The record is a 306-nucleotide RNA from Solanum lycopersicum, which matches "Plant signal recognition particle RNA" in Rfam. Pairs were carried over by alignment from the consensus structure, which is taken from published work. It is annotated as a non-coding RNA gene. The match comes from Rfam's covariance-model search (238 bits).
[Rfam]
RNA sequence: GCCGAGUUCAGUAACGUGAACUUAUAACCUGAGUGGGGGCUUUAAAGUGAUGGAACAUUGGAUUAGUCCAAAUGGUAGGGUUUAGGCCAAUAUUAUAUUGGACCGCCCUCUCCAAGCGAGGAGUUGGCCCAUGUGACCUAGGCGAAGGCCUAGGUUUCAUGGAUUCUAGAGUGGAGGGGACUGCAUCAGGCUGGCUUCACAGAGCAACGAUUACCUCCCGCUCUUUGCAGUGGAAGGAUUACGGACCGGUGCUGCCCAAGCCCAUCAAAUGCCAGAUGGACUUGUCUAAAUUGGACCAUCGCUUUU
Numbered sequence: 001g002c003c004g005a006g007u008u009c010a011g012u013a014a015c016g017u018g019a020a021c022u023u024a025u026a027a028c029c030u031g032a033g034u035g036g037g038g039g040c041u042u043u044a045a046a047g048u049g050a051u052g053g054a055a056c057a058u059u060g061g062a063u064u065a066g067u068c069c070a071a072a073u074g075g076u077a078g079g080g081u082u083u084a085g086g087c088c089a090a091u092a093u094u095a096u097a098u099u100g101g102a103c104c105g106c107c108c109u110c111u112c113c114a115a116g117c118g119a120g121g122a123g124u125u126g127g128c129c130c131a132u133g134u135g136a137c138c139u140a141g142g143c144g145a146a147g148g149c150c151u152a153g154g155u156u157u158c159a160u161g162g163a164u165u166c167u168a169g170a171g172u173g174g175a176g177g178g179g180a181c182u183g184c185a186u187c188a189g190g191c192u193g194g195c196u197u198c199a200c201a202g203a204g205c206a207a208c209g210a211u212u213a214c215c216u217c218c219c220g221c222u223c224u225u226u227g228c229a230g231u232g233g234a235a236g237g238a239u240u241a242c243g244g245a246c247c248g249g250u251g252c253u254g255c256c257c258a259a260g261c262c263c264a265u266c267a268a269a270u271g272c273c274a275g276a277u278g279g280a281c282u283u284g285u286c287u288a289a290a291u292u293g294g295a296c297c298a299u300c301g302c303u304u305u306u
Base pairs, nucleotide, nucleotide: 001040002039003038004023005022006021007020008019009018010017028037029036030035044305045304046303047302048301049300050299051298052297053296056293057292058290059289061286062285063284065282066281068279069278070277073274074273075272076271077270078263079262080261081260082259083258085256086255088254089253098249099248100247101246103244104243105242107237108236111234112233113232114231116228117227118226119225120224121223122222123221124220126165127164129162130161131160132159133158135156136155137154138153139152140151141150142149143148166171173218174217175216176215177214184209186207191202192201193200